Background: Shown here is a 138-nucleotide sequence from Marisediminitalea lipolytica, a member of the family "Gammaprotebacteria rimP leader". Pairs were carried over by alignment from the consensus structure, which is taken from published work. The organism belongs to Marisediminitalea, within Bacteria. On this family, see Naville and Gautheret, Genome Biol 2010: "Premature terminator analysis sheds light on a hidden world of bacterial transcriptional attenuation".
[Rfam]
RNA sequence: UUGCCUGAUGUGGGCAAAAGGGACCGAAUUUUUAUUGCAAAAAGCCCCGUUUAAUCGGGGCUUUUUGUUAAUUCGCUCUCACGCACAAAGCGAUACCAAAUUAAGGUAUCAGUAUAUUGGGCAUUAUGCCCUUUUUUC
Numbered sequence: 001u002u003g004c005c006u007g008a009u010g011u012g013g014g015c016a017a018a019a020g021g022g023a024c025c026g027a028a029u030u031u032u033u034a035u036u037g038c039a040a041a042a043a044g045c046c047c048c049g050u051u052u053a054a055u056c057g058g059g060g061c062u063u064u065u066u067g068u069u070a071a072u073u074c075g076c077u078c079u080c081a082c083g084c085a086c087a088a089a090g091c092g093a094u095a096c097c098a099a100a101u102u103a104a105g106g107u108a109u110c111a112g113u114a115u116a117u118u119g120g121g122c123a124u125u126a127u128g129c130c131c132u133u134u135u136u137u138c
Base pairs, nucleotide, nucleotide: 041064042063043062044061045060046059047058048057049056119131120130121129122128
Source information
It scores 50 bits against the family's covariance model. It is annotated as a cis-regulatory leader.